Rfam assigns this 122-nucleotide sequence from Cavia porcellus to the family "Small nucleolar RNA SNORA27". Lineage of the source: Eukaryota > Chordata > Sarcopterygii > Rodentia > Cavia. ACA27 is a member of the H/ACA class of snoRNA that guide the sites of modification of uridines to pseudouridines.
RNA sequence: ACACCCUCUGUCACUUUGCCAGUGGACUUACAUGUUUAUUAGUCAUUCAAGUGGAGCAAAGGAAAUAUCUUUUUAAAAUUCAGGCAAAUUGAGUGCUUUGGAAACUUUCAGAGGAAAUAAAU
Numbered sequence: 001a002c003a004c005c006c007u008c009u010g011u012c013a014c015u016u017u018g019c020c021a022g023u024g025g026a027c028u029u030a031c032a033u034g035u036u037u038a039u040u041a042g043u044c045a046u047u048c049a050a051g052u053g054g055a056g057c058a059a060a061g062g063a064a065a066u067a068u069c070u071u072u073u074u075a076a077a078a079u080u081c082a083g084g085c086a087a088a089u090u091g092a093g094u095g096c097u098u099u100g101g102a103a104a105c106u107u108u109c110a111g112a113g114g115a116a117a118u119a120a121a122u
Stems, first nucleotide, its partner, number of pairs: 033058005039050002042047001068115006081100001082098005
The family has 24 seed sequences and 819 matches in Rfam 15.1. Clan: SNORA27 clan.